[Rfam]
Shown here is a 58-nucleotide RNA sequence from Lactuca sativa, a member of the family "Plastid-ccsA-ndhD-2 3UTR RNA". A reference for the family is Richter et al. (2023), "Retrograde signaling in plants: A critical review focusing on the GUN pathway and beyond", Plant Commun. From the family's description: Plastid ccsA-ndhD-2 is a non-coding RNA (ncRNA) recognised in plastids.
RNA sequence: CCGGUGACAACCGUGUGAAUCAAGUCAAGUAGUGUAGUGAUUCACACGGUUCUCGCAA
Numbered sequence: 001c002c003g004g005u006g007a008c009a010a011c012c013g014u015g016u017g018a019a020u021c022a023a024g025u026c027a028a029g030u031a032g033u034g035u036a037g038u039g040a041u042u043c044a045c046a047c048g049g050u051u052c053u054c055g056c057a058a
Stems, first nucleotide, its partner, number of pairs: 004056004009051014